[Rfam]
RNA sequence: GGGGAACAUCCAAGAGUUGAGAUGUUGCCUGAUACAAUCUUCCUAUAGAAAACUCUGUAAAUUCCUGCUUGUAGCACUUAAGUAAAGUUCUGCAAGUCUCAUAUCUCCAGAGACAUGA
Numbered sequence: 001g002g003g004g005a006a007c008a009u010c011c012a013a014g015a016g017u018u019g020a021g022a023u024g025u026u027g028c029c030u031g032a033u034a035c036a037a038u039c040u041u042c043c044u045a046u047a048g049a050a051a052a053c054u055c056u057g058u059a060a061a062u063u064c065c066u067g068c069u070u071g072u073a074g075c076a077c078u079u080a081a082g083u084a085a086a087g088u089u090c091u092g093c094a095a096g097u098c099u100c101a102u103a104u105c106u107c108c109a110g111a112g113a114c115a116u117g118a
Stems, first nucleotide, its partner, number of pairs: 001030003005026006054111003067097008076088002078085001
About this RNA:
Shown here is a 118-nucleotide RNA from Citrus unshiu, a member of the family "Small nucleolar RNA snoR104". Rfam 15.1 lists 612 matches to the family in 228 species. By type it is an H/ACA-box small nucleolar RNA. Lineage of the source: Eukaryota > Mesangiospermae > rosids > Rutaceae > Citrus. A search with the family's covariance model found it, with a score of 110 bits. The family's consensus secondary structure was predicted with WAR.